[Rfam]
RNA sequence: AUGAAGUAAGUAGGAGAGACUUUGAAAUUUUCAAAGCGCCGAAGGGGUAAGUUAACAAAGUCCUUGUUAAUGAUCUUUCAGGCAAAGGGACUACUUAUGGACA
Numbered sequence: 001a002u003g004a005a006g007u008a009a010g011u012a013g014g015a016g017a018g019a020c021u022u023u024g025a026a027a028u029u030u031u032c033a034a035a036g037c038g039c040c041g042a043a044g045g046g047g048u049a050a051g052u053u054a055a056c057a058a059a060g061u062c063c064u065u066g067u068u069a070a071u072g073a074u075c076u077u078u079c080a081g082g083c084a085a086a087g088g089g090a091c092u093a094c095u096u097a098u099g100g101a102c103a
Stems, first nucleotide, its partner, number of pairs: 006098008020036004038083003041079002045077003051071008
The family of this 103-nucleotide RNA from Clostridium cylindrosporum is "Glycine riboswitch aptamer". Clan: Glycine riboswitch clan.